This 72-nucleotide sequence from Thermoactinomyces daqus belongs to the Rfam family "skipping-rope RNA". Taxonomically the source falls in Thermoactinomyces (Bacteria, Bacillota, Caryophanales, Thermoactinomycetaceae).

[Rfam]
RNA sequence: GAAUUUAGAGGAUGGAACAGGCAGCCAUCACCAUCAAAUUGGAGAUGCAGGAAUGUCGCCCUGCCUAAAUUC
Number, nucleotide and partner (000 for none) at each position: 001g072002a071003a070004u069005u068006u067007a066008g065009a000010g000011g029012a028013u027014g026015g025016a000017a000018c000019a000020g057021g056022c055023a054024g000025c015026c014027a013028u012029c011030a000031c042032c000033a000034u000035c000036a000037a000038a000039u000040u000041g000042g031043a000044g000045a000046u000047g064048c063049a062050g061051g060052a000053a000054u023055g022056u021057c020058g000059c000060c051061c050062u049063g048064c047065c008066u007067a006068a005069a004070u003071u002072c001